Shown here is a 70-nucleotide sequence from Microcebus murinus, a member of the family "Small nucleolar RNA SNORD101". The family's RNA type in Rfam is C/D-box small nucleolar RNA.
[Rfam]
RNA sequence: GUUGGAAUGAUGACUUAAUUGUCGUAUACCCUUGCACUCCCCUUAUGGAUGAAACAUCACAGUCUGCAAC
Numbered sequence: 001g002u003u004g005g006a007a008u009g010a011u012g013a014c015u016u017a018a019u020u021g022u023c024g025u026a027u028a029c030c031c032u033u034g035c036a037c038u039c040c041c042c043u044u045a046u047g048g049a050u051g052a053a054a055c056a057u058c059a060c061a062g063u064c065u066g067c068a069a070c
Base pairs, nucleotide, nucleotide: 001070002069003068004067
Dot-bracket structure: ((((..............................................................))))